[Rfam]
RNA sequence: GGUAAAGGAGGAUCGGCUAAGUUCGGCACGUCCUGCCGGGCGCCGAUCUGACUCACCUCGUAUGAG
Numbered sequence: 001g002g003u004a005a006a007g008g009a010g011g012a013u014c015g016g017c018u019a020a021g022u023u024c025g026g027c028a029c030g031u032c033c034u035g036c037c038g039g040g041c042g043c044c045g046a047u048c049u050g051a052c053u054c055a056c057c058u059c060g061u062a063u064g065a066g
Stems, first nucleotide, its partner, number of pairs: 011048007025037002029035001052066004
Dot-bracket structure: ..........(((((((.......((..(.....)))....)))))))...((((.......))))
This 66-nucleotide RNA from Salibacterium qingdaonense belongs to the Rfam family "Bacillaceae-1 RNA". The base pairs follow the family's consensus structure, which is taken from published work. It scores 40 bits against the family's covariance model.